[Rfam]
RNA sequence: CCUCCUUUCUUGGCAUGCAUGUAGUUGUUCAGUACUCAUGUGUGUAAUGUAUGGAGGUAAAGAGAAGCCAGUGCUAUGUCUUCGGUGCCAGCAUGUUUCAUGUCUGCUGGUUCUAUCCUCAAUCAUUGGAACAAGC
Number, nucleotide and partner (000 for none) at each position: 001c057002c056003u055004c054005c053006u000007u000008u000009c000010u000011u000012g000013g000014c044015a043016u042017g041018c040019a039020u000021g037022u000023a036024g035025u034026u000027g000028u000029u000030c000031a000032g000033u000034a025035c024036u023037c021038a000039u019040g018041u017042g016043u015044g014045u000046a000047a000048u000049g000050u000051a000052u000053g005054g004055a003056g002057g001058u000059a000060a000061a000062g000063a000064g000065a000066a000067g000068c000069c128070a127071g126072u125073g124074c000075u000076a000077u000078g000079u000080c000081u000082u000083c000084g000085g000086u000087g000088c110089c109090a108091g107092c106093a105094u000095g104096u000097u000098u000099c000100a000101u000102g000103u000104c095105u093106g092107c091108u090109g089110g088111u000112u000113c000114u000115a000116u000117c000118c000119u000120c000121a000122a000123u000124c073125a072126u071127u070128g069129g000130a000131a000132c000133a000134a000135g000136c000
Source information
Small nucleolar RNA SNORA57: a 136-nucleotide sequence. The family's RNA type in Rfam is H/ACA-box small nucleolar RNA. Gene Ontology terms of the family: RNA processing and nucleolus. On this family, see Vitali et al., Nucleic Acids Res 2003: "Identification of 13 novel human modification guide RNAs". Rfam's curators write: U99 belongs to the H/ACA class of snoRNAs which are thought to guide the sites of modification of uridines to pseudouridines, the target for this family is unknown. Pairs were carried over by alignment from the consensus structure, which was predicted with PFOLD.